[Rfam]
RNA sequence: UUUAGGAGAAAACAAAAUGAACGAAGUUUAUUUUUAGAAUGUUUUCGACGAAAUGCCGAUAAUCAAAGGAAAGGAACAAUACAUAUA
Numbered sequence: 001u002u003u004a005g006g007a008g009a010a011a012a013c014a015a016a017a018u019g020a021a022c023g024a025a026g027u028u029u030a031u032u033u034u035u036a037g038a039a040u041g042u043u044u045u046c047g048a049c050g051a052a053a054u055g056c057c058g059a060u061a062a063u064c065a066a067a068g069g070a071a072a073g074g075a076a077c078a079a080u081a082c083a084u085a086u087a
Base pairs, nucleotide, nucleotide: 008046009045010044011043012042013041016032017031018030019029020028021027055077060072063069064068
Dot-bracket structure: .......((((((..((((((.....))))))........))))))........(....(..((...))..)....)..........
The family of this 87-nucleotide sequence is "GA-cis RNA".
The base pairs follow the family's consensus structure, which is taken from published work.